[Rfam]
RNA: L31-Firmicutes ribosomal protein leader
Nucleotides: 031
Base pairs, nucleotide, nucleotide: 001022002021003020004019005018006017007016008015
Number, partner (000 for none) and nucleotide at each position: 001022c002021u003020a004019u005018g006017g007016c008015g009000a010000a011000a012000u013000u014000a015008c016007g017006u018005c019004a020003u021002g022001g023000c024000g025000g026000a027000a028000g029000g030000a031000g